About this RNA: L31-Coriobacteria ribosomal protein leader: a 32-nucleotide RNA from Trichonephila clavata. Clan: Ribosomal Protein L31 Leader clan. Lineage of the source: Eukaryota > Opisthokonta > Bilateria > Araneae > Trichonephila. It scores 33 bits against the family's covariance model. It is annotated as a cis-regulatory leader. For this family Rfam cites "Discovery of 20 novel ribosomal leader candidates in bacteria and archaea" (Eckert and Weinberg, BMC Microbiol, 2020).
RNA sequence: GGGGGGGUCGGAACCCCUCCCGAAUGAAGGAG
Numbered sequence: 001g002g003g004g005g006g007g008u009c010g011g012a013a014c015c016c017c018u019c020c021c022g023a024a025u026g027a028a029g030g031a032g
Stems, first nucleotide, its partner, number of pairs: 001021007